[Rfam]
RNA sequence: GCGUAAUGAUGAUGAAACUUUUUAACCGAUGAAUUCAUGAAUGGAUAAUAAACCUCCUACUCAUUCUGA
Numbered sequence: 001g002c003g004u005a006a007u008g009a010u011g012a013u014g015a016a017a018c019u020u021u022u023u024a025a026c027c028g029a030u031g032a033a034u035u036c037a038u039g040a041a042u043g044g045a046u047a048a049u050a051a052a053c054c055u056c057c058u059a060c061u062c063a064u065u066c067u068g069a
Base pairs, nucleotide, nucleotide: 006064007063008062009061022045023044026039
Notes: Shown here is a 69-nucleotide RNA sequence from Coptis chinensis, a member of the family "Small nucleolar RNA Z105". Rfam classes the family as a C/D-box small nucleolar RNA. On this family, see Chen et al., Nucleic Acids Res 2003: "The high diversity of snoRNAs in plants: identification and comparative study of 120 snoRNA genes from Oryza sativa". Gene Ontology terms of the family: RNA processing and nucleolus. Pairs were carried over by alignment from the consensus structure, which was predicted with CMfinder. The match comes from Rfam's covariance-model search (56 bits).